This 139-nucleotide RNA sequence from Falco tinnunculus belongs to the Rfam family "Small nucleolar RNA SNORA75". From the family's description: U23 belongs to the H/ACA class of snoRNAs. snoRNAs bind a number of proteins (including dyskerin, Gar1p and Nop10p in the case of the H/ACA class) to form snoRNP complexes. Rfam links the family to the GO terms RNA processing and nucleolus. The literature on the family includes a 1997 paper in Genes Dev by Ganot et al., "The family of box ACA small nucleolar RNAs is defined by an evolutionarily conserved secondary structure and ubiquitous sequence elements essential for RNA accumulation".

[Rfam]
RNA sequence: CACUUCUCAAUGAGCUCCUUCCUGCCAACAAAUCCGUGGCAGCCUAUGGAUUCGCACGAGAAGAAUAUUAACUGUUCAGUACUGGCAAACUCGCAAUGGGCUUCCAUCGAUUGUGACUAGCCACUGCUGUUUGACAAGU
Numbered sequence: 001c002a003c004u005u006c007u008c009a010a011u012g013a014g015c016u017c018c019u020u021c022c023u024g025c026c027a028a029c030a031a032a033u034c035c036g037u038g039g040c041a042g043c044c045u046a047u048g049g050a051u052u053c054g055c056a057c058g059a060g061a062a063g064a065a066u067a068u069u070a071a072c073u074g075u076u077c078a079g080u081a082c083u084g085g086c087a088a089a090c091u092c093g094c095a096a097u098g099g100g101c102u103u104c105c106a107u108c109g110a111u112u113g114u115g116a117c118u119a120g121c122c123a124c125u126g127c128u129g130u131u132u133g134a135c136a137a138g139u
Stems, first nucleotide, its partner, number of pairs: 003063006014055002016050003022042005074132001077129003094113004099108001